The record is a 108-nucleotide sequence from Oceanobacillus piezotolerans, which matches "SAM riboswitch aptamer (S box leader)" in Rfam.
The family's consensus secondary structure is taken from published work.
A search with the family's covariance model found it, with a score of 79 bits.
RNA sequence: CUCUUAUUCAGAGUCGGUGGAGGGACAGACCCUGUGAAACCCAGCAACCAUCACAUUUUGUGAAAAGGUGCUAACCUGUUGCAAGGAUAAAACCUUGAACAAUAAGAG
Numbered sequence: 001c002u003c004u005u006a007u008u009c010a011g012a013g014u015c016g017g018u019g020g021a022g023g024g025a026c027a028g029a030c031c032c033u034g035u036g037a038a039a040c041c042c043a044g045c046a047a048c049c050a051u052c053a054c055a056u057u058u059u060g061u062g063a064a065a066a067g068g069u070g071c072u073a074a075c076c077u078g079u080u081g082c083a084a085g086g087a088u089a090a091a092a093c094c095u096u097g098a099a100c101a102a103u104a105a106g107a108g
Base pairs, nucleotide, nucleotide: 001108002107003106004105005104006103007102008101013042016041017040018039022032023031024030026081027080028079029077043072044071045070046069048068049067051063052062053061082097083096084095085094086093